Group II catalytic intron D1-D4-7: a 147-nucleotide RNA. It is one of the family's seed sequences.

[Rfam]
RNA sequence: CCUAUCGUUCCUCCGAUAGUAGCCUAAAGGCACGGGCAUCAACAGCAAUGUAAUGUCCGAAGCUGUCUUGACGAUGUAACCCAAUCGAAAGAUGAAGCCAAACCCGCGAGGGCAAAGCGGAACUGCGAGUAUCACGCGGUAGGGUGC
Number, nucleotide and partner (000 for none) at each position: 001c000002c019003u018004a017005u016006c015007g014008u000009u000010c000011c000012u000013c000014c007015g006016a005017u004018a003019g002020u000021a000022g000023c000024c000025u000026a000027a000028a068029g067030g066031c065032a064033c059034g058035g057036g056037c055038a054039u053040c000041a000042a051043c050044a049045g000046c000047a000048a000049u044050g043051u042052a000053a039054u038055g037056u036057c035058c034059g033060a000061a000062g000063c000064u032065g031066u030067c029068u028069u000070g000071a000072c000073g000074a000075u000076g000077u000078a000079a000080c000081c000082c000083a000084a093085u092086c091087g000088a000089a000090a000091g086092a085093u084094g000095a000096a000097g118098c117099c000100a000101a000102a000103c000104c111105c110106g000107c000108g000109a000110g105111g104112g000113c000114a000115a000116a000117g098118c097119g000120g000121a000122a140123c139124u138125g137126c136127g135128a000129g000130u000131a000132u000133c000134a000135c127136g126137c125138g124139g123140u122141a000142g000143g000144g000145u000146g000147c000

Rfam 15.1 lists 1,296 matches to the family in 705 species. A reference for the family is Bonen and Vogel (2001), "The ins and outs of group II introns", Trends Genet. Group II introns are found in rRNA, tRNA and mRNA of organelles in fungi, plants and protists, and also in mRNA in bacteria.